[Rfam]
RNA sequence: GGUGGCCUGAAGGCUGCAGCAGUCGAUCAUCGUAUGCUGCCGCAGUUGAUCCGGUCCGCU
Numbered sequence: 001g002g003u004g005g006c007c008u009g010a011a012g013g014c015u016g017c018a019g020c021a022g023u024c025g026a027u028c029a030u031c032g033u034a035u036g037c038u039g040c041c042g043c044a045g046u047u048g049a050u051c052c053g054g055u056c057c058g059c060u
Stems, first nucleotide, its partner, number of pairs: 001060005012047006019040005024032002